[Rfam]
The record is a 129-nucleotide RNA from Zingiber officinale, which matches "MIR394 microRNA precursor family" in Rfam. For this family Rfam cites "Computational identification of plant microRNAs and their targets, including a stress-induced miRNA" (Jones-Rhoades and Bartel, Mol Cell, 2004). The source organism's lineage runs through Eukaryota, Streptophytina, Liliopsida, Zingiberaceae and Zingiber. Rfam links the family to the GO terms RISC complex and miRNA-mediated post-transcriptional gene silencing.
RNA sequence: CUUACAGAGGUUAUUGGCAUCCUGUCCACCUCCAAUCCAAUUCAUAUAGCACAUAGCCAUCUCUCAAGGCAUGAGCUUGGAGAGAGAUGUAGAUGGAGGUGGACAUAGCUGCCAAGUGAACUCUGUUGG
Numbered sequence: 001c002u003u004a005c006a007g008a009g010g011u012u013a014u015u016g017g018c019a020u021c022c023u024g025u026c027c028a029c030c031u032c033c034a035a036u037c038c039a040a041u042u043c044a045u046a047u048a049g050c051a052c053a054u055a056g057c058c059a060u061c062u063c064u065c066a067a068g069g070c071a072u073g074a075g076c077u078u079g080g081a082g083a084g085a086g087a088u089g090u091a092g093a094u095g096g097a098g099g100u101g102g103a104c105a106u107a108g109c110u111g112c113c114a115a116g117u118g119a120a121c122u123c124u125g126u127u128g129g
Stems, first nucleotide, its partner, number of pairs: 011119001014115006023105011